[Rfam]
RNA sequence: AUAUUAUUGCUAUUCGUACCAAAGAAAGCAACUGGGGAAACCCUUAAUUUGUUGCCGAGGAAUGAAAACAUAAAUUGUUUUUUAUUUUGCCUCGGUUCUUGCCGAGGUUUUCUUUUGCAAAA
Numbered sequence: 001a002u003a004u005u006a007u008u009g010c011u012a013u014u015c016g017u018a019c020c021a022a023a024g025a026a027a028g029c030a031a032c033u034g035g036g037g038a039a040a041c042c043c044u045u046a047a048u049u050u051g052u053u054g055c056c057g058a059g060g061a062a063u064g065a066a067a068a069c070a071u072a073a074a075u076u077g078u079u080u081u082u083u084a085u086u087u088u089g090c091c092u093c094g095g096u097u098c099u100u101g102c103c104g105a106g107g108u109u110u111u112c113u114u115u116u117g118c119a120a121a122a
Stems, first nucleotide, its partner, number of pairs: 028055005034043003090107007